[Rfam]
RNA sequence: GGCCUCUCAGCUCCGUUUAAUCACACAGGUCCAGUGUGUGGUUGGCCUGUUUUCUGGGAGGCAGAGGAAGGCUUUCCUAAUUACAAGAGACCUGCCCAGAAUGGCCUCCCCAUUUCUAGGAGUAUGAUCGCU
Numbered sequence: 001g002g003c004c005u006c007u008c009a010g011c012u013c014c015g016u017u018u019a020a021u022c023a024c025a026c027a028g029g030u031c032c033a034g035u036g037u038g039u040g041g042u043u044g045g046c047c048u049g050u051u052u053u054c055u056g057g058g059a060g061g062c063a064g065a066g067g068a069a070g071g072c073u074u075u076c077c078u079a080a081u082u083a084c085a086a087g088a089g090a091c092c093u094g095c096c097c098a099g100a101a102u103g104g105c106c107u108c109c110c111c112a113u114u115u116c117u118a119g120g121a122g123u124a125u126g127a128u129c130g131c132u
Stems, first nucleotide, its partner, number of pairs: 004064002007061002011058003015054001019043008074122005080117001089110001094105003
Annotation: The record is a 132-nucleotide RNA sequence from Macaca mulatta, which matches "Small nucleolar RNA SNORA64/SNORA10 family" in Rfam. By type it is an H/ACA-box small nucleolar RNA. It scores 99 bits against the family's covariance model. For this family Rfam cites "Nucleolar localization signals of box H/ACA small nucleolar RNAs" (Narayanan et al., EMBO J, 1999). Its Rfam clan is "SNORA64 clan". From the family's description: This family belongs to the H/ACA class of small nucleolar RNAs (snoRNAs) which act as guides in the the modification of uridines to pseudouridines. This family includes the human snoRNAs U64 and ACA10 and mouse MBI-29.